Rfam assigns this 107-nucleotide RNA sequence from Lupinus albus to the family "Small nucleolar RNA Z152/R70/R12/". It is annotated as a C/D-box small nucleolar RNA. It scores 79 bits against the family's covariance model. The source organism's lineage runs through Eukaryota, Streptophytina, Gunneridae, core genistoids and Lupinus. Rfam 15.1 lists 604 matches to the family in 220 species.
RNA sequence: GUUGCAAUGAUGUGACAAAAACACAAUGGUGUUAUUAGGCAGUGGACGUUGCCAUUUGGUAGCGCCGUGAGCCUAUAUUUUAACGACUUCUCCUUCCACUGAGCACU
Numbered sequence: 001g002u003u004g005c006a007a008u009g010a011u012g013u014g015a016c017a018a019a020a021a022c023a024c025a026a027u028g029g030u031g032u033u034a035u036u037a038g039g040c041a042g043u044g045g046a047c048g049u050u051g052c053c054a055u056u057u058g059g060u061a062g063c064g065c066c067g068u069g070a071g072c073c074u075a076u077a078u079u080u081u082a083a084c085g086a087c088u089u090c091u092c093c094u095u096c097c098a099c100u101g102a103g104c105a106c107u
Base pairs, nucleotide, nucleotide: 001107003105004104005103